RNA: FMN riboswitch aptamer (RFN element)
RNA sequence: AAUUGUUCUCAGGGCGGGGCGAAAUUCCCCACCGGCGGUAUAUCAGAAAUGAUGAGCCCGCGAGCGCUAAACCAUGUUUAGGGUCAGCAGAUUUGGUGAGAUGCCAAAGCCGACGGUUAUAGUCCGGAUGAAAGAGGAUGAUC
Numbered sequence: 001a002a003u004u005g006u007u008c009u010c011a012g013g014g015c016g017g018g019g020c021g022a023a024a025u026u027c028c029c030c031a032c033c034g035g036c037g038g039u040a041u042a043u044c045a046g047a048a049a050u051g052a053u054g055a056g057c058c059c060g061c062g063a064g065c066g067c068u069a070a071a072c073c074a075u076g077u078u079u080a081g082g083g084u085c086a087g088c089a090g091a092u093u094u095g096g097u098g099a100g101a102u103g104c105c106a107a108a109g110c111c112g113a114c115g116g117u118u119a120u121a122g123u124c125c126g127g128a129u130g131a132a133a134g135a136g137g138a139u140g141a142u143c
Stems, first nucleotide, its partner, number of pairs: 003141008017029003031123002033112002035061004056110002064088002092108005114126003